[Rfam]
RNA sequence: CGGAGGUGCAGGGCUUGGCUCGCUUUGUGAACAGUUGAGUAUGAAAGCUGAUGUUCACAGUGGCUAAGUUCCGCACCCCGC
Numbered sequence: 001c002g003g004a005g006g007u008g009c010a011g012g013g014c015u016u017g018g019c020u021c022g023c024u025u026u027g028u029g030a031a032c033a034g035u036u037g038a039g040u041a042u043g044a045a046a047g048c049u050g051a052u053g054u055u056c057a058c059a060g061u062g063g064c065u066a067a068g069u070u071c072c073g074c075a076c077c078c079c080g081c
Stems, first nucleotide, its partner, number of pairs: 011071010027058007
RNA: mir-27 microRNA precursor family
Organism: Muraenolepis orangiensis